This 95-nucleotide sequence from Bacillus cytotoxicus belongs to the Rfam family "pan motif". The family's RNA type in Rfam is cis-regulatory element.

[Rfam]
RNA sequence: UGGGCAGUAUCGAAAUGAACUGCACCGUUAUUCCAAGCAGGGAACAAUAAUAAUUUGGAUUCUGCCUUGAUCCAAUAAUGGACUGGGACAGAGGG
Numbered sequence: 001u002g003g004g005c006a007g008u009a010u011c012g013a014a015a016u017g018a019a020c021u022g023c024a025c026c027g028u029u030a031u032u033c034c035a036a037g038c039a040g041g042g043a044a045c046a047a048u049a050a051u052a053a054u055u056u057g058g059a060u061u062c063u064g065c066c067u068u069g070a071u072c073c074a075a076u077a078a079u080g081g082a083c084u085g086g087g088a089c090a091g092a093g094g095g
Stems, first nucleotide, its partner, number of pairs: 001027003004023005010018002062091003065087003069083001071082003